RNA sequence: ACCGUCUCUAUCUGGGGGAUGCGCACCAUUCCAAUGAACGUAUAGUGAGGAUUGGUCUGCUAACACCAAUGAAAUAUCAUGUGUCACUGACUUCUCCGAAGUUAGUAGGCACAAUUUUUGGGGCU
Numbered sequence: 001a002c003c004g005u006c007u008c009u010a011u012c013u014g015g016g017g018g019a020u021g022c023g024c025a026c027c028a029u030u031c032c033a034a035u036g037a038a039c040g041u042a043u044a045g046u047g048a049g050g051a052u053u054g055g056u057c058u059g060c061u062a063a064c065a066c067c068a069a070u071g072a073a074a075u076a077u078c079a080u081g082u083g084u085c086a087c088u089g090a091c092u093u094c095u096c097c098g099a100a101g102u103u104a105g106u107a108g109g110c111a112c113a114a115u116u117u118u119u120g121g122g123g124c125u
Base pairs, nucleotide, nucleotide: 005019006018007017008016009015021060022059023058026055027054028053030051031050032049038046039045081112082111083110084109085108089103090102091101092100093099094098
A member of the RNA family "U4atac minor spliceosomal RNA" from Capitella teleta, 125 nucleotides long.
The organism belongs to Capitella, within Eukaryota.
U4atac is an essential component of the minor U12-type spliceosome complex which is required for removal of the rarer class of eukaryotic introns (AT-AC, U12-type).
The base pairs follow the family's consensus structure, which is taken from published work.
It is annotated as a spliceosomal small nuclear RNA.